[Rfam]
RNA sequence: GUCGGGAGGGCGACGAAUACAACACCCUUACGGGGAAUAAGUCCGCGGUCUCACUGAGCCGUUUCGAACCUCCCGGCACCACUCC
Numbered sequence: 001g002u003c004g005g006g007a008g009g010g011c012g013a014c015g016a017a018u019a020c021a022a023c024a025c026c027c028u029u030a031c032g033g034g035g036a037a038u039a040a041g042u043c044c045g046c047g048g049u050c051u052c053a054c055u056g057a058g059c060c061g062u063u064u065c066g067a068a069c070c071u072c073c074c075g076g077c078a079c080c081a082c083u084c085c
Stems, first nucleotide, its partner, number of pairs: 001077009012043003016038001025034003045062005

This 85-nucleotide RNA sequence from Salmonella enterica belongs to the Rfam family "sRNA-Xcc1". The organism belongs to Salmonella enterica subsp. enterica serovar Schwarzengrund, within Bacteria. For this family Rfam cites "sRNA-Xcc1, an integron-encoded transposon- and plasmid-transferred trans-acting sRNA, is under the positive control of the key virulence regulators HrpG and HrpX of Xanthomonas campestris pathovar campestris" (Chen et al., RNA Biol, 2011). The family's consensus secondary structure was predicted with RNAalifold.